[Rfam]
RNA sequence: CUGUGCUAGACGGGGAGGUAGCGGUGCCUUGUAACCUGCAAUCCGCUAUAGCAGGGUUGAAAUCCAUCUAGAGGACUAAGAGCUGUAGAGCUGCCCUGGAUAAGUGGCGAUGAUAUUCGGGUCCUGCGCAAUGGAAGCUCACAAACCCCGCCAGGUCCGGAAGGAAGCAACGGUAAGUGACAACUUCCAUGUGCCGCAGGGGUGCCUGAAUUGAGCUAACUGUCUAGGUAACGUUUAUGGCCUUAGUUCGAAGGAUGGUGCACAG
Numbered sequence: 001c002u003g004u005g006c007u008a009g010a011c012g013g014g015g016a017g018g019u020a021g022c023g024g025u026g027c028c029u030u031g032u033a034a035c036c037u038g039c040a041a042u043c044c045g046c047u048a049u050a051g052c053a054g055g056g057u058u059g060a061a062a063u064c065c066a067u068c069u070a071g072a073g074g075a076c077u078a079a080g081a082g083c084u085g086u087a088g089a090g091c092u093g094c095c096c097u098g099g100a101u102a103a104g105u106g107g108c109g110a111u112g113a114u115a116u117u118c119g120g121g122u123c124c125u126g127c128g129c130a131a132u133g134g135a136a137g138c139u140c141a142c143a144a145a146c147c148c149c150g151c152c153a154g155g156u157c158c159g160g161a162a163g164g165a166a167g168c169a170a171c172g173g174u175a176a177g178u179g180a181c182a183a184c185u186u187c188c189a190u191g192u193g194c195c196g197c198a199g200g201g202g203u204g205c206c207u208g209a210a211u212u213g214a215g216c217u218a219a220c221u222g223u224c225u226a227g228g229u230a231a232c233g234u235u236u237a238u239g240g241c242c243u244u245a246g247u248u249c250g251a252a253g254g255a256u257g258g259u260g261c262a263c264a265g
Base pairs, nucleotide, nucleotide: 001265002264003263004262005261006260009058010057011056012030013029014028015027017025019023035055036054037053038052039051064258065257066256067255068254069253073249074248075247076246077245079243080242083239087235088234092230093229096227097226098225099224100223101222104220105219106217107216108215115211116210117209118208119207120206121205122204123200124199125198126197127196128195129191130190132189133188134187135186136185139180140179141178142177148173149172150171156165157164158163
Bacterial large signal recognition particle RNA: a 265-nucleotide RNA from Alkalithermobacter paradoxus. By type it is a non-coding RNA gene. It scores 208 bits against the family's covariance model. Rfam describes the family as follows. The signal recognition particle (SRP) is a universally conserved ribonucleoprotein involved in the co-translational targeting of proteins to membranes.